[Rfam]
Rfam assigns this 75-nucleotide RNA sequence from Manacus vitellinus to the family "mir-460 microRNA precursor family". The literature on the family includes a 2006 paper in FEBS Lett by Xu et al., "Identification of microRNAs from different tissues of chicken embryo and adult chicken". Lineage of the source: Eukaryota > Gnathostomata > Archosauria > Dinosauria > Manacus. It scores 67 bits against the family's covariance model.
RNA sequence: CUGUCCAGCAGCUGCAUUGUACACACUGUGUGUGGCACCGGAACGCACAGCGCAUGCAAUGUGGAGGCUGGGCAC
Numbered sequence: 001c002u003g004u005c006c007a008g009c010a011g012c013u014g015c016a017u018u019g020u021a022c023a024c025a026c027u028g029u030g031u032g033u034g035g036c037a038c039c040g041g042a043a044c045g046c047a048c049a050g051c052g053c054a055u056g057c058a059a060u061g062u063g064g065a066g067g068c069u070g071g072g073c074a075c
Stems, first nucleotide, its partner, number of pairs: 012064002015061007024052001026050006